Notes:
Shown here is a 76-nucleotide sequence from Leptobrachium leishanense, a member of the family "mir-196 microRNA precursor family". For this family Rfam cites "New microRNAs from mouse and human" (Lagos-Quintana et al., RNA, 2003). It scores 84 bits against the family's covariance model. Rfam 15.1 lists 1,813 matches to the family in 642 species. The family's consensus secondary structure was predicted with PFOLD. Gene Ontology terms of the family: RISC complex and gene silencing by miRNA.
RNA sequence: UCCGUGGUUUAGGUAGUUUCAUGUUGUUGGGGAUUGGCUUUUUAACGCGGCAACAAGAAACUGCCUUAAUUACGUC
Numbered sequence: 001u002c003c004g005u006g007g008u009u010u011a012g013g014u015a016g017u018u019u020c021a022u023g024u025u026g027u028u029g030g031g032g033a034u035u036g037g038c039u040u041u042u043u044a045a046c047g048c049g050g051c052a053a054c055a056a057g058a059a060a061c062u063g064c065c066u067u068a069a070u071u072a073c074g075u076c
Stems, first nucleotide, its partner, number of pairs: 003074007011066009022055008031046001